[Rfam]
RNA sequence: GAUAAGCACUAGGGGAGCUAUGUAAAUGGCUGAGAAGAACUGUUUGUUCUGACUCUUUGCACCCGAUCUGGAUAAUACCAGCGUGGGGAAGUGCGGUUAGGUCAUU
Numbered sequence: 001g002a003u004a005a006g007c008a009c010u011a012g013g014g015g016a017g018c019u020a021u022g023u024a025a026a027u028g029g030c031u032g033a034g035a036a037g038a039a040c041u042g043u044u045u046g047u048u049c050u051g052a053c054u055c056u057u058u059g060c061a062c063c064c065g066a067u068c069u070g071g072a073u074a075a076u077a078c079c080a081g082c083g084u085g086g087g088g089a090a091g092u093g094c095g096g097u098u099a100g101g102u103c104a105u106u
Stems, first nucleotide, its partner, number of pairs: 006094005011056004016050001017030005037049004062087004068081004

Rfam assigns this 106-nucleotide RNA sequence from Ureibacillus yapensis to the family "TPP riboswitch aptamer (THI element)".
Rfam links the family to the GO term thiamine pyrophosphate binding.
A search with the family's covariance model found it, with a score of 81 bits.